SAM (S-adenosyl methionine) riboswitch aptamer: a 117-nucleotide RNA from Skermania sp. ID1734. Pairs were carried over by alignment from the consensus structure, which is taken from published work.

[Rfam]
RNA sequence: GGUCAUGAGUGCCAGUGUCAAAGCCCCGGCUUGCUGGCCGGCAACCCUCCUCCGCGGUGGGGUGCUCCGGGUGACGACCUGGCCGCGCGACCGACCCGGACGCGGCAAGUGCGGACU
Numbered sequence: 001g002g003u004c005a006u007g008a009g010u011g012c013c014a015g016u017g018u019c020a021a022a023g024c025c026c027c028g029g030c031u032u033g034c035u036g037g038c039c040g041g042c043a044a045c046c047c048u049c050c051u052c053c054g055c056g057g058u059g060g061g062g063u064g065c066u067c068c069g070g071g072u073g074a075c076g077a078c079c080u081g082g083c084c085g086c087g088c089g090a091c092c093g094a095c096c097c098g099g100a101c102g103c104g105g106c107a108a109g110u111g112c113g114g115a116c117u
Stems, first nucleotide, its partner, number of pairs: 001079004009039001011038006022031002040066003045062003049057002082106005089101001091099003
Background
Its Rfam clan is "SAM clan". The literature on the family includes a 2008 paper in RNA by Weinberg et al., "The aptamer core of SAM-IV riboswitches mimics the ligand-binding site of SAM-I riboswitches". The family has 40 seed sequences and 2,360 matches in Rfam 15.1. The source organism's lineage runs through Bacteria, Bacillati, Mycobacteriales, Gordoniaceae and Skermania.